A member of the RNA family "U11 spliceosomal RNA" from Thamnophis sirtalis, 141 nucleotides long. The match comes from Rfam's covariance-model search (111 bits). The base pairs follow the family's consensus structure, which is taken from published work. The family's RNA type in Rfam is spliceosomal small nuclear RNA. Lineage of the source: Eukaryota > Metazoa > Tetrapoda > Bifurcata > Thamnophis.
RNA sequence: AAAAAGGGCUUCUGCUGUGUUUAGCACACGGAGAGGGGUGGCUACGGCUUUCUCCUUCCCGUGCGGAAUCGCUAUCAAGAGAUUUCGGAAGCAUAAUUUUUGCGAAUGGGGUAGCUGAUAACCGCUUGUUCCGGCUCCCCG
Numbered sequence: 001a002a003a004a005a006g007g008g009c010u011u012c013u014g015c016u017g018u019g020u021u022u023a024g025c026a027c028a029c030g031g032a033g034a035g036g037g038g039u040g041g042c043u044a045c046g047g048c049u050u051u052c053u054c055c056u057u058c059c060c061g062u063g064c065g066g067a068a069u070c071g072c073u074a075u076c077a078a079g080a081g082a083u084u085u086c087g088g089a090a091g092c093a094u095a096a097u098u099u100u101u102g103c104g105a106a107u108g109g110g111g112u113a114g115c116u117g118a119u120a121a122c123c124g125c126u127u128g129u130u131c132c133g134g135c136u137c138c139c140c141g
Base pairs, nucleotide, nucleotide: 008092009091010090011089012088013026014025015024016023017022027063028062029061030060031059033057034056035055036054037053038052064087065086066085067084068083069082070081109139110138111137114135115134116133117132120130121129122128